[Rfam]
RNA sequence: CUCCAUUCCGAGGGGAGCGCCGGGCGGCGCUGAGACGGCGGUGAGCCGGACCCUUGAACCUGAUCCGGGUCAUGCCGGCGUAGGAACGGAACGAGGCUGCCCU
Numbered sequence: 001c002u003c004c005a006u007u008c009c010g011a012g013g014g015g016a017g018c019g020c021c022g023g024g025c026g027g028c029g030c031u032g033a034g035a036c037g038g039c040g041g042u043g044a045g046c047c048g049g050a051c052c053c054u055u056g057a058a059c060c061u062g063a064u065c066c067g068g069g070u071c072a073u074g075c076c077g078g079c080g081u082a083g084g085a086a087c088g089g090a091a092c093g094a095g096g097c098u099g100c101c102c103u
Stems, first nucleotide, its partner, number of pairs: 006091005011054004017030005037047003059084004065078004

The family of this 103-nucleotide RNA sequence from Ensifer fredii is "TPP riboswitch aptamer (THI element)".
The organism belongs to Ensifer fredii, within Bacteria.
About the family: Vitamin B(1) in its active form thiamin pyrophosphate (TPP) is an essential coenzyme that is synthesised by coupling of pyrimidine and thiazole moieties in bacteria.